[Rfam]
RNA sequence: UUGCACUAUGUAUCGAAGGCUAUGUCAAAUUACAGUGACAUAGUCUUUAAUGCAAAAGUGCAGAAAGAGAGAGCUGUUAAAUCAGCAAGCGGCCAGACAACCGUCGGGAUAGAUCCACAGGUGAAGCGGAUUGAUUCCUCUGCUUUCAGCUACUAAAUCUAUCCUACAUAC
Numbered sequence: 001u002u003g004c005a006c007u008a009u010g011u012a013u014c015g016a017a018g019g020c021u022a023u024g025u026c027a028a029a030u031u032a033c034a035g036u037g038a039c040a041u042a043g044u045c046u047u048u049a050a051u052g053c054a055a056a057a058g059u060g061c062a063g064a065a066a067g068a069g070a071g072a073g074c075u076g077u078u079a080a081a082u083c084a085g086c087a088a089g090c091g092g093c094c095a096g097a098c099a100a101c102c103g104u105c106g107g108g109a110u111a112g113a114u115c116c117a118c119a120g121g122u123g124a125a126g127c128g129g130a131u132u133g134a135u136u137c138c139u140c141u142g143c144u145u146u147c148a149g150c151u152a153c154u155a156a157a158u159c160u161a162u163c164c165u166a167c168a169u170a171c
Stems, first nucleotide, its partner, number of pairs: 002062005009054003013050001015048013106165008123146007

A member of the RNA family "small nucleolar RNA snoR143", 171 nucleotides long.
The sequence is in the family's curated seed alignment.
Rfam classes the family as an H/ACA-box small nucleolar RNA.
The base pairs follow the family's consensus structure, which was predicted with RNAalifold.
Rfam links the family to the GO terms RNA processing and nucleolus.